[Rfam]
RNA sequence: AAGCCAGCUAUUGAAUUUGACUAUCUGUAUGUGAUUCUACAGAAAUUUAGAAAAAGCUGGUAAUAGUAAUGCUGCCACAUUAUGAGCCUUAAAAACAUUGAAGUCAUUAAGGUGCCUAAAAAUGGUUACAAAU
Numbered sequence: 001a002a003g004c005c006a007g008c009u010a011u012u013g014a015a016u017u018u019g020a021c022u023a024u025c026u027g028u029a030u031g032u033g034a035u036u037c038u039a040c041a042g043a044a045a046u047u048u049a050g051a052a053a054a055a056g057c058u059g060g061u062a063a064u065a066g067u068a069a070u071g072c073u074g075c076c077a078c079a080u081u082a083u084g085a086g087c088c089u090u091a092a093a094a095a096c097a098u099u100g101a102a103g104u105c106a107u108u109a110a111g112g113u114g115c116c117u118a119a120a121a122a123u124g125g126u127u128a129c130a131a132a133u
Stems, first nucleotide, its partner, number of pairs: 003061005016043004074126004086113007095104002
The family of this 133-nucleotide RNA sequence from Cavia porcellus is "Small nucleolar RNA SNORA33". It scores 110 bits against the family's covariance model. The organism belongs to Cavia, within Eukaryota. It is annotated as an H/ACA-box small nucleolar RNA. Rfam's curators write: ACA33 is a member of the H/ACA class of snoRNA that guide the sites of modification of uridines to pseudouridines.